Notes: The record is an 86-nucleotide RNA from Caproiciproducens galactitolivorans, which matches "c-di-GMP-I riboswitch aptamer" in Rfam. Lineage of the source: Bacteria > Bacillati > Bacillota > Eubacteriales > Caproiciproducens. Gene Ontology term of the family: cyclic-di-GMP binding. It scores 65 bits against the family's covariance model.
RNA sequence: AUUUUUUUUAUGCAAACUUAUCGAAAGAUAAGGACGCUAAGCCAUAGGGUCUAAAGGAUGACGUCCCAUGACAGCCGGUUUCCUUU
Numbered sequence: 001a002u003u004u005u006u007u008u009u010a011u012g013c014a015a016a017c018u019u020a021u022c023g024a025a026a027g028a029u030a031a032g033g034a035c036g037c038u039a040a041g042c043c044a045u046a047g048g049g050u051c052u053a054a055a056g057g058a059u060g061a062c063g064u065c066c067c068a069u070g071a072c073a074g075c076c077g078g079u080u081u082c083c084u085u086u
Stems, first nucleotide, its partner, number of pairs: 012037002017032006040080004047076002049072003056066004